[Rfam]
This 87-nucleotide RNA sequence from Vitis rotundifolia belongs to the Rfam family "mir-160 microRNA precursor family". For this family Rfam cites "Prediction of plant microRNA targets" (Rhoades et al., Cell, 2002). The family has 7 seed sequences and 1,502 matches in Rfam 15.1. The organism belongs to Vitis, within Eukaryota.
RNA sequence: AUCUGCCUGGCUCCCUGAAUGCCAUCUAAGAAGCUUGUCAUGGUUGUUGACUCCCUUCCUAGUUGGCAUCAGAGGAGUCAUGCAGGC
Numbered sequence: 001a002u003c004u005g006c007c008u009g010g011c012u013c014c015c016u017g018a019a020u021g022c023c024a025u026c027u028a029a030g031a032a033g034c035u036u037g038u039c040a041u042g043g044u045u046g047u048u049g050a051c052u053c054c055c056u057u058c059c060u061a062g063u064u065g066g067c068a069u070c071a072g073a074g075g076a077g078u079c080a081u082g083c084a085g086g087c
Base pairs, nucleotide, nucleotide: 002086003085004084005083006082008080009079010078011077012076013075014074016072019069020068021067022066023065024064027061028060
Dot-bracket structure: .(((((.(((((((.(..((((((..((...............................))..))))))..).))))))).))))).